[Rfam]
RNA sequence: UGUGCGGGCCGGGCCCCUCUGGCGUAUGGCUUCCCUUGGGAAGCUGGACGUGAUGUCGGACCGCAUCG
Numbered sequence: 001u002g003u004g005c006g007g008g009c010c011g012g013g014c015c016c017c018u019c020u021g022g023c024g025u026a027u028g029g030c031u032u033c034c035c036u037u038g039g040g041a042a043g044c045u046g047g048a049c050g051u052g053a054u055g056u057c058g059g060a061c062c063g064c065a066u067c068g
Base pairs, nucleotide, nucleotide: 006062007061009059010058011057012056022051023050024049025048027046028045029044030043031042032041033040

terC RNA: a 68-nucleotide RNA from Sphingobium herbicidovorans. NCBI's taxonomy places the organism under Bacteria, Pseudomonadati, Pseudomonadota, Alphaproteobacteria, Sphingobium herbicidovorans.